[Rfam]
Nucleotides: 160
Base pairs, nucleotide, nucleotide: 012119013118014117015116016048017047018046019045020044021043023042024041025040026039027038049089050088051087053086055083056082057081059078060077061076062075063074091114092113093112094110095109096108098106099105135159136158137157138156139155142153143152144151145150
Number, partner (000 for none) and nucleotide at each position: 001000a002000u003000a004000c005000u006000u007000a008000c009000c010000u011000g012119g013118a014117c015116g016048g017047g018046g019045u020044c021043g022000a023042c024041g025040g026039c027038u028000g029000a030000u031000c032000a033000a034000g035000a036000a037000g038027a039026g040025u041024c042023g043021u044020g045019g046018c047017c048016u049089a050088g051087g052000c053086u054000a055083g056082u057081g058000g059078u060077c061076c062075a063074c064000a065000u066000u067000g068000c069000a070000c071000c072000u073000g074063g075062u076061g077060g078059a079000u080000g081057c082056g083055c084000u085000g086053g087051c088050c089049u090000a091114c092113c093112a094110u095109c096108u097000c098106c099105c100000c101000a102000a103000g104000u105099g106098g107000g108096a109095g110094a111000g112093u113092g114091g115000a116015c117014g118013u119012c120000g121000u122000a123000a124000u125000u126000u127000g128000u129000g130000a131000u132000a133000g134000a135159g136158g137157g138156g139155g140000u141000a142153c143152g144151c145150g146000u147000u148000c149000g150145c151144g152143c153142g154000g155139c156138c157137c158136u159135u160000g